[Rfam]
RNA sequence: GGUCAUGCUUUUCCACAGCUUUCUUGAACUUCUUUUGUAAUCUUAAAUCUGAUUUCAAGGUUAAAAGCCCUAGAAGCUCAAGAAAGCUGUGGGAGAAUAUGGCAA
Numbered sequence: 001g002g003u004c005a006u007g008c009u010u011u012u013c014c015a016c017a018g019c020u021u022u023c024u025u026g027a028a029c030u031u032c033u034u035u036u037g038u039a040a041u042c043u044u045a046a047a048u049c050u051g052a053u054u055u056c057a058a059g060g061u062u063a064a065a066a067g068c069c070c071u072a073g074a075a076g077c078u079c080a081a082g083a084a085a086g087c088u089g090u091g092g093g094a095g096a097a098u099a100u101g102g103c104a105a
Base pairs, nucleotide, nucleotide: 003102004101005100006099007098013092014091015090017088018087019086020085021084022083024081025080026079027078029076030075031074032073033072
Dot-bracket structure: ..(((((.....(((.((((((.((((.(((((......................................))))).)))).)))))).))).....)))))...
MIR396 microRNA precursor family: a 105-nucleotide sequence from Lathyrus oleraceus. Rfam 15.1 lists 744 matches to the family in 207 species. Rfam links the family to the GO terms RISC complex and miRNA-mediated post-transcriptional gene silencing. A reference for the family is Jones-Rhoades and Bartel (2004), "Computational identification of plant microRNAs and their targets, including a stress-induced miRNA", Mol Cell.